[Rfam]
RNA sequence: GGGAAAUUGGGGAGGGGCCUGGAGCGAGAGCCACCCAAGCCUCCAGGAACUAUAGGCUCA
Number, nucleotide and partner (000 for none) at each position: 001g000002g000003g000004a000005a000006a000007u000008u000009g000010g000011g000012g000013a000014g044015g043016g041017g040018c039019c000020u037021g036022g035023a000024g034025c000026g000027a000028g059029a058030g057031c056032c055033a000034c024035c022036c021037a020038a000039g018040c017041c016042u000043c015044c014045a000046g000047g000048a000049a000050c000051u000052a000053u000054a000055g032056g031057c030058u029059c028060a000

The record is a 60-nucleotide RNA from Sphenodon punctatus, which matches "Ma3 gene ribosomal frameshift signal" in Rfam.
On this family, see Wills et al., J Biol Chem 2006: "A functional -1 ribosomal frameshift signal in the human paraneoplastic Ma3 gene".
Rfam links the family to the GO term translational frameshifting.
Lineage of the source: Eukaryota > Eumetazoa > Craniata > Vertebrata > Sphenodon.
It is annotated as a frameshift element.
Pairs were carried over by alignment from the consensus structure, which is taken from published work.
A search with the family's covariance model found it, with a score of 43 bits.
The family has 12 seed sequences and 565 matches in Rfam 15.1.